[Rfam]
RNA sequence: UUGAAGAUUUUAAUACUUCAACUUGUAUACUUGGAGAAUUUUGAAGACUUCAACUUGCAUACUUGGAGAUUUUUAAAAAACUUCAUCU
Dot-bracket structure: .(((((.((((((..(((((...((((...((((((...........))))))..))))....)))))....))))))..)))))...
The family of this 88-nucleotide RNA sequence from Solanum tuberosum is "MIR8024 microRNA precursor family". The match comes from Rfam's covariance-model search (68 bits).